A member of the RNA family "mir-433 microRNA precursor family" from Canis lupus, 74 nucleotides long. Rfam links the family to the GO terms miRNA-mediated post-transcriptional gene silencing, RISC complex and cellular response to lipopolysaccharide. Rfam 15.1 lists 130 matches to the family in 130 species. The source organism's lineage runs through Eukaryota, Craniata, Euteleostomi, Sarcopterygii and Canis lupus.
[Rfam]
RNA sequence: UACGGUGAGCCUGUCAUUAUUCAGAGAGGCUAGAUCCUCUGUGUUGAGAAGGAUCAUGAUGGGCUCCUCGGUGU
Numbered sequence: 001u002a003c004g005g006u007g008a009g010c011c012u013g014u015c016a017u018u019a020u021u022c023a024g025a026g027a028g029g030c031u032a033g034a035u036c037c038u039c040u041g042u043g044u045u046g047a048g049a050a051g052g053a054u055c056a057u058g059a060u061g062g063g064c065u066c067c068u069c070g071g072u073g074u
Base pairs, nucleotide, nucleotide: 003070004069005068007066008065009064010063011062012061013060014059015058016057017056019054020053021052022043023042026039027038028037029036